[Rfam]
RNA: Bacterial large subunit ribosomal RNA, nucleotides 556 to 783
RNA sequence: GACUUAGUCUAACUAGCAAGCUUAAGCCGUUAGGUGUAGGCGCAGCGAAAGCGAGUCUGAAUAGGGCGUCAAGUUAGUUGGAUUAGACCCGAACCCGAGUGAUCUAGCCAUGUGCAGGCUGAAGGUAAGGUAACACUUACUGGAGGGCCGAACCCACGUAAGUUGAAAAUUACGGGGAUGACGUGUGGCUAGGGGUGAAAGGCCAAUCAAACUCGGAAAUAGCUGGUU
Numbered sequence: 001g002a003c004u005u006a007g008u009c010u011a012a013c014u015a016g017c018a019a020g021c022u023u024a025a026g027c028c029g030u031u032a033g034g035u036g037u038a039g040g041c042g043c044a045g046c047g048a049a050a051g052c053g054a055g056u057c058u059g060a061a062u063a064g065g066g067c068g069u070c071a072a073g074u075u076a077g078u079u080g081g082a083u084u085a086g087a088c089c090c091g092a093a094c095c096c097g098a099g100u101g102a103u104c105u106a107g108c109c110a111u112g113u114g115c116a117g118g119c120u121g122a123a124g125g126u127a128a129g130g131u132a133a134c135a136c137u138u139a140c141u142g143g144a145g146g147g148c149c150g151a152a153c154c155c156a157c158g159u160a161a162g163u164u165g166a167a168a169a170u171u172a173c174g175g176g177g178a179u180g181a182c183g184u185g186u187g188g189c190u191a192g193g194g195g196u197g198a199a200a201g202g203c204c205a206a207u208c209a210a211a212c213u214c215g216g217a218a219a220u221a222g223c224u225g226g227u228u
Base pairs, nucleotide, nucleotide: 005085006084007083008082009081010080011079012078013077014076015075016074017073020041021040022039023038026035027034028033045052046051055067056066057065058064088226089225091223095216096215097214098213099212100211104192105191106190107189108188109187110186111185112184113183114182115180117149118148119147120146124141125140126139127138128137129136153177154176155175157174158173159172160171161170194204195203196202